[Rfam]
RNA sequence: AUACAUAUCACAAAUGUAUUUUGCUAUUGGUUUGCAGGCUAGUAGCAUUCCUUUCUAACUACCUUAGGUAGUCUGCGAC
Dot-bracket structure: ......................(((((((((.[[[[[)))))))))............(((((...))))).]]]]]..
RNA: Cyanobacterial ribosomal protein S1 leader